[Rfam]
Background:
The family of this 288-nucleotide part of an RNA from Aeropyrum pernix is "Archaeal large subunit ribosomal RNA". Its family is annotated with ribosome and structural constituent of ribosome in the Gene Ontology.
RNA sequence: GGCCGCCUGAGGGGAAGGUGCCCUUAGUACGAGAGGAACGGGGCGCCGCGGCCUCUGGUGUACCGGUUGUCCUGGUGGGCAACGCCGGGCAGCUAAGCCGUAGGGGGUAACCGCUGAAAGCAUCUAAGCGGGAACCCCUCCCCGAAAAGAGGCGGCCGUUGGGCGCCGGCCUGGUGCCGGCGUCCACGAGGGCUCCCGUAGAAGACGGGGUUGAUGGGGCGGGGGUGUGAGCCCCGAGGGGGCUUAGCCCUCGAGGGGUGUAGCCCGCCGCUCCCAAUCGCCCGAGGC
Numbered sequence: 001g002g003c004c005g006c007c008u009g010a011g012g013g014g015a016a017g018g019u020g021c022c023c024u025u026a027g028u029a030c031g032a033g034a035g036g037a038a039c040g041g042g043g044c045g046c047c048g049c050g051g052c053c054u055c056u057g058g059u060g061u062a063c064c065g066g067u068u069g070u071c072c073u074g075g076u077g078g079g080c081a082a083c084g085c086c087g088g089g090c091a092g093c094u095a096a097g098c099c100g101u102a103g104g105g106g107g108u109a110a111c112c113g114c115u116g117a118a119a120g121c122a123u124c125u126a127a128g129c130g131g132g133a134a135c136c137c138c139u140c141c142c143c144g145a146a147a148a149g150a151g152g153c154g155g156c157c158g159u160u161g162g163g164c165g166c167c168g169g170c171c172u173g174g175u176g177c178c179g180g181c182g183u184c185c186a187c188g189a190g191g192g193c194u195c196c197c198g199u200a201g202a203a204g205a206c207g208g209g210g211u212u213g214a215u216g217g218g219g220c221g222g223g224g225g226u227g228u229g230a231g232c233c234c235c236g237a238g239g240g241g242g243c244u245u246a247g248c249c250c251u252c253g254a255g256g257g258g259u260g261u262a263g264c265c266c267g268c269c270g271c272u273c274c275c276a277a278u279c280g281c282c283c284g285a286g287g288c
Stems, first nucleotide, its partner, number of pairs: 001157008011143004017047008048101005056095003063088005068081005104138003111131005190283004194210005215276003218272005223266003228260001231259005238252004